[Rfam]
RNA sequence: AAUCGUUCUCGGGGCGGGGUGUAAUUCCCCACCGGCGGUAAAGAAACUCAAUUUCCAAGCCCGCGAGCGCCCACAUUUUAUAGGUGUGGGGUCAGCAGAUCUGGUGAGACUCCAGAGCCGACGGUCAUAGUCCGGAUAAGAGAGAGCGUGC
Numbered sequence: 001a002a003u004c005g006u007u008c009u010c011g012g013g014g015c016g017g018g019g020u021g022u023a024a025u026u027c028c029c030c031a032c033c034g035g036c037g038g039u040a041a042a043g044a045a046a047c048u049c050a051a052u053u054u055c056c057a058a059g060c061c062c063g064c065g066a067g068c069g070c071c072c073a074c075a076u077u078u079u080a081u082a083g084g085u086g087u088g089g090g091g092u093c094a095g096c097a098g099a100u101c102u103g104g105u106g107a108g109a110c111u112c113c114a115g116a117g118c119c120g121a122c123g124g125u126c127a128u129a130g131u132c133c134g135g136a137u138a139a140g141a142g143a144g145a146g147c148g149u150g151c
Stems, first nucleotide, its partner, number of pairs: 004148007017029003031131002033120002035064004059118002067096002100116005122134003
A member of the RNA family "FMN riboswitch aptamer (RFN element)" from Thalassolituus oleivorans, 151 nucleotides long. It scores 116 bits against the family's covariance model. The RFN element is a highly conserved domain that is found frequently in the 5'-untranslated regions of prokaryotic mRNAs that encode for flavin mononucleotide (FMN) biosynthesis and transport proteins. This element is a metabolite-dependent riboswitch that directly binds FMN in the absence of proteins. In Bacillus subtilis, the riboswitch most likely controls gene expression by causing premature transcription termination within the 5' untranslated region of the ribDEAHT operon and precluding access to the ribosome-binding site of ypaA mRNA.The FMN riboswitch structure, reported in present an FMN-bound six-stem junction, adopts a butterfly-like scaffold, stapled together by opposingly directed but nearly identically folded peripheral domains.